The family of this 66-nucleotide RNA sequence from Bifidobacterium bifidum is "SAM-VI (S-adenosyl methionine) riboswitch aptamer".

RNA sequence: CGUAUCAUUGUGCCUUAUCCGCAAAAGGCGGGUAGGGCGAUAAGUCCGAAAGAGGGAUGAUAUGAC
Number, nucleotide and partner (000 for none) at each position: 001c064002g063003u062004a061005u060006c059007a058008u057009u056010g000011u039012g038013c037014c036015u035016u034017a033018u032019c031020c000021g029022c028023a000024a000025a000026a000027g000028g022029c021030g000031g019032g018033u017034a016035g015036g014037g013038c012039g011040a000041u000042a000043a000044g000045u000046c055047c054048g000049a000050a000051a000052g000053a000054g047055g046056g009057a008058u007059g006060a005061u004062a003063u002064g001065a000066c000

Annotation: Lineage of the source: Bacteria > Actinomycetes > Bifidobacteriales > Bifidobacterium > Bifidobacterium bifidum. The base pairs follow the family's consensus structure, which was predicted with RNAfold. It is one of the family's seed sequences.